This 285-nucleotide part of an RNA from Zygotorulaspora mrakii belongs to the Rfam family "Eukaryotic large subunit ribosomal RNA". Rfam 15.1 lists 107,465 matches to the family in 2,616 species. The family's consensus secondary structure is taken from published work. Lineage of the source: Eukaryota > Opisthokonta > Dikarya > Saccharomycetaceae > Zygotorulaspora.
RNA sequence: GAGUCUAACGUCUAUGCGAGUGUUUGGGUGUGAAACCCGUACGCGUAAUGAAAGUGAACGUAGGUUGGGGCCUCGCAAGAGGUGCACAAUCGACCGAUCCUGAAGUGUUCGGAAGGAUUUGAGUAAGAGCAUAGCUGUUGGGACCCGAAAGAUGGUGAACUAUGCCUGAAUAGGGUGAAGCCAGAGGAAACUCUGGUGGAGGCUCGUAGCGGUUCUGACGUGCAAAUCGAUCGUCGAAUUUGGGUAUAGGGGCGAAAGACUAAUCGAACCAUCUAGUAGCUGGUU
Number, nucleotide and partner (000 for none) at each position: 001g000002a000003g000004u000005c141006u140007a139008a138009c137010g136011u000012c134013u133014a132015u131016g130017c129018g000019a000020g044021u043022g042023u000024u000025u039026g038027g037028g036029u035030g000031u000032g000033a000034a000035a029036c028037c027038c026039g025040u000041a000042c022043g021044c020045g000046u000047a000048a055049u054050g000051a000052a000053a000054g049055u048056g000057a000058a000059c000060g000061u000062a000063g091064g090065u089066u088067g087068g000069g000070g083071c082072c081073u000074c000075g000076c000077a000078a000079g000080a000081g072082g071083u070084g000085c000086a000087c067088a066089a065090u064091c063092g000093a124094c123095c121096g120097a119098u117099c116100c115101u000102g000103a000104a000105g110106u000107g000108u000109u000110c105111g000112g000113a000114a000115g100116g099117a098118u000119u097120u096121g095122a000123g094124u093125a000126a000127g000128a000129g017130c016131a015132u014133a013134g012135c000136u010137g009138u008139u007140g006141g005142g000143a000144c283145c282146c000147g280148a000149a000150a000151g273152a272153u271154g270155g269156u268157g000158a000159a000160c249161u248162a247163u246164g245165c244166c243167u242168g241169a240170a239171u237172a000173g205174g204175g203176u202177g000178a000179a000180g197181c196182c195183a194184g193185a192186g191187g000188a000189a000190a000191c186192u185193c184194u183195g182196g181197u180198g000199g000200a000201g000202g176203c175204u174205c173206g000207u000208a000209g234210c233211g232212g231213u000214u230215c229216u000217g228218a227219c000220g000221u000222g000223c000224a000225a000226a000227u218228c217229g215230a214231u212232c211233g210234u209235c000236g000237a171238a000239u170240u169241u168242g167243g166244g165245u164246a163247u162248a161249g160250g000251g261252g260253c000254g000255a000256a000257a000258g000259a000260c252261u251262a000263a000264u000265c000266g000267a000268a156269c155270c154271a153272u152273c151274u000275a000276g000277u000278a000279g000280c147281u000282g145283g144284u000285u000